This 83-nucleotide sequence from Anaerocolumna sedimenticola belongs to the Rfam family "c-di-GMP-I riboswitch aptamer".
For this family Rfam cites "Identification of 22 candidate structured RNAs in bacteria using the CMfinder comparative genomics pipeline" (Weinberg et al., Nucleic Acids Res, 2007).
The match comes from Rfam's covariance-model search (55 bits).
Its family is annotated with cyclic-di-GMP binding in the Gene Ontology.
The organism belongs to Anaerocolumna, within Bacteria.
RNA sequence: GAAUAAUGCUAGCAAACCUGCCUAAAGGCAGCGGCGCAAAACUAAAGGGCCUAAACUAACAGGUAUGGCAGCCAGUUGCAAUA
Numbered sequence: 001g002a003a004u005a006a007u008g009c010u011a012g013c014a015a016a017c018c019u020g021c022c023u024a025a026a027g028g029c030a031g032c033g034g035c036g037c038a039a040a041a042c043u044a045a046a047g048g049g050c051c052u053a054a055a056c057u058a059a060c061a062g063g064u065a066u067g068g069c070a071g072c073c074a075g076u077u078g079c080a081a082u083a
Stems, first nucleotide, its partner, number of pairs: 012037002018031005040077004047073002049069003056063002